[Rfam]
RNA sequence: GUAUGGGAUUGGAUUUAUGGUAGGCCCAUCCUGCUGGGUCUGUCAUUGUGCCCCGUGCCAGAGCAAACUGUGGCCUCAAAGCAUGAGCUGGCCUCUGCCUGUAGGCUGCAGGCACUGAAACAGGUCACACAAUA
Numbered sequence: 001g002u003a004u005g006g007g008a009u010u011g012g013a014u015u016u017a018u019g020g021u022a023g024g025c026c027c028a029u030c031c032u033g034c035u036g037g038g039u040c041u042g043u044c045a046u047u048g049u050g051c052c053c054c055g056u057g058c059c060a061g062a063g064c065a066a067a068c069u070g071u072g073g074c075c076u077c078a079a080a081g082c083a084u085g086a087g088c089u090g091g092c093c094u095c096u097g098c099c100u101g102u103a104g105g106c107u108g109c110a111g112g113c114a115c116u117g118a119a120a121c122a123g124g125u126c127a128c129a130c131a132a133u134a
Stems, first nucleotide, its partner, number of pairs: 001058004005053003015048001017046004022041003025037002071127006082117002088111001089108006
Rfam assigns this 134-nucleotide RNA sequence from Phyllostomus discolor to the family "Small nucleolar RNA SNORA42/SNORA80 family". Rfam links the family to the GO terms RNA processing and nucleolus. By type it is an H/ACA-box small nucleolar RNA. On this family, see Schattner et al., RNA 2006: "A computational screen for mammalian pseudouridylation guide H/ACA RNAs". The source organism's lineage runs through Eukaryota, Metazoa, Tetrapoda, Yangochiroptera and Phyllostomus.